[Rfam]
RNA sequence: UGUCUCCUCCAUCCUCCUCCUUUGGUGGAUUUCUAAGCCCGGUCCCUGACCGGGCUUUUUUUU
Numbered sequence: 001u002g003u004c005u006c007c008u009c010c011a012u013c014c015u016c017c018u019c020c021u022u023u024g025g026u027g028g029a030u031u032u033c034u035a036a037g038c039c040c041g042g043u044c045c046c047u048g049a050c051c052g053g054g055c056u057u058u059u060u061u062u063u
Stems, first nucleotide, its partner, number of pairs: 008029006036056008